Rfam assigns this 98-nucleotide RNA sequence from Streptomyces gilvosporeus to the family "Glycine riboswitch aptamer".
Its Rfam clan is "Glycine riboswitch clan".
Rfam links the family to the GO term glycine biosynthetic process.
RNA sequence: UGACCCCAUGCGGGAGAGUCCCUUGCCGUUCGCGGCGGGGGCGCCGAAGGAGCAACUCCUCCCCGGAAUCUCUCAGGCAUCCGUACCGCAUGGACGAG
Numbered sequence: 001u002g003a004c005c006c007c008a009u010g011c012g013g014g015a016g017a018g019u020c021c022c023u024u025g026c027c028g029u030u031c032g033c034g035g036c037g038g039g040g041g042c043g044c045c046g047a048a049g050g051a052g053c054a055a056c057u058c059c060u061c062c063c064c065g066g067a068a069u070c071u072c073u074c075a076g077g078c079a080u081c082c083g084u085a086c087c088g089c090a091u092g093g094a095c096g097a098g
Stems, first nucleotide, its partner, number of pairs: 006093008020041008043078003046074002050072003056066002